This 96-nucleotide sequence from Ferroacidibacillus organovorans belongs to the Rfam family "c-di-GMP-I-GGC riboswitch aptamer". The match comes from Rfam's covariance-model search (61 bits). The family has 40 seed sequences and 1,298 matches in Rfam 15.1. Its family is annotated with cyclic-di-GMP binding in the Gene Ontology.
RNA sequence: AUUGACAAGGGCAAACUCUGCGAAAGCAGGGGACGCAAAACUACAGGGGCUAUCGGCGAACGCUUCCAUUCGCCAACCGCCAGCCAGUUGCCGAUU
Number, nucleotide and partner (000 for none) at each position: 001a096002u000003u093004g092005a000006c000007a000008a000009g000010g000011g036012c035013a000014a000015a000016c031017u030018c029019u028020g027021c026022g000023a000024a000025a000026g021027c020028a019029g018030g017031g016032g000033a000034c083035g012036c011037a000038a000039a089040a088041c087042u086043a000044c000045a000046g085047g084048g081049g080050c079051u000052a000053u000054c000055g000056g000057c000058g000059a000060a000061c000062g000063c000064u000065u000066c000067c000068a000069u000070u000071c000072g000073c000074c000075a000076a000077c000078c000079g050080c049081c048082a000083g034084c047085c046086a042087g041088u040089u039090g000091c000092c004093g003094a000095u000096u001